[Rfam]
The record is a 97-nucleotide RNA sequence from Streptococcus parasanguinis, which matches "Cia-dependent small RNA csRNA1" in Rfam.
On this family, see Halfmann et al., Mol Microbiol 2007: "Identification of the genes directly controlled by the response regulator CiaR in Streptococcus pneumoniae: five out of 15 promoters drive expression of small non-coding RNAs".
The source organism's lineage runs through Bacteria, Bacilli, Lactobacillales, Streptococcus and Streptococcus parasanguinis.

RNA sequence: CAUAAACAAAGACCUCCUAACUUUGUUUAGAAAAAUCCUAAAACUUUUCUUUUUCAUAAUAAUCUCCCUAAGAGUCGCCCAAUCAGGCGGCUUUUUU
Numbered sequence: 001c002a003u004a005a006a007c008a009a010a011g012a013c014c015u016c017c018u019a020a021c022u023u024u025g026u027u028u029a030g031a032a033a034a035a036u037c038c039u040a041a042a043a044c045u046u047u048u049c050u051u052u053u054u055c056a057u058a059a060u061a062a063u064c065u066c067c068c069u070a071a072g073a074g075u076c077g078c079c080c081a082a083u084c085a086g087g088c089g090g091c092u093u094u095u096u097u
Stems, first nucleotide, its partner, number of pairs: 003029009071094009